Rfam assigns this 76-nucleotide RNA sequence from Crocodylus porosus to the family "Mammalian CPEB3 ribozyme".
[Rfam]
RNA sequence: UCUGAGUUAUCAGGAGCAUAGCAGAAGUGCCCACGUCAUAGCCCUGUCAGAUUCUAAUGAAUCUGCAAAUUCUGCU
Numbered sequence: 001u002c003u004g005a006g007u008u009a010u011c012a013g014g015a016g017c018a019u020a021g022c023a024g025a026a027g028u029g030c031c032c033a034c035g036u037c038a039u040a041g042c043c044c045u046g047u048c049a050g051a052u053u054c055u056a057a058u059g060a061a062u063c064u065g066c067a068a069a070u071u072c073u074g075c076u
Stems, first nucleotide, its partner, number of pairs: 013044002016042002020076007027039003048065007
A search with the family's covariance model found it, with a score of 56 bits. The organism belongs to Crocodylus, within Eukaryota. Its family is annotated with RNA nuclease activity in the Gene Ontology.